[Rfam]
RNA sequence: UUAUGAGGUAGAGGCGCGAUAUUUAUUAGUUCUUUGUUGAGGAGAAGCAAACGAUGACGCAAAGAAGAAGGAAAUGUCGCCGAAGUGUGUAAGAAGCUAGUACUUGCAUGCUGGGUCUGUAAUGAAUAAUUACAGGACUGUCUUAACAUCAUUGUUAAGUUGAGCUAUCUGAGAU
Dot-bracket structure: .....((((((....(((((((((......(((((((.....................)))))))......)))))))))...((((((((((.(.....).))))))))))((.((((((((.....)))))))).))..((((((......)))))).....)))))).....
RNA: Lysine riboswitch aptamer
Organism: Lysinibacillus alkalisoli